[Rfam]
Record summary:
The family of this 40-nucleotide sequence from Kordia algicida is "DUF805b RNA". Taxonomically the source falls in Kordia algicida (Bacteria, Bacteroidota, Flavobacteriia, Flavobacteriales). Its Rfam clan is "DUF805 clan". Rfam's curators put it in the seed alignment.
RNA sequence: ACGGUGGCAUCCGAAAAACCAACUAACAAUAGAGUAGGAA
Numbered sequence: 001a002c003g004g005u006g007g008c009a010u011c012c013g014a015a016a017a018a019c020c021a022a023c024u025a026a027c028a029a030u031a032g033a034g035u036a037g038g039a040a
Stems, first nucleotide, its partner, number of pairs: 003020003010039003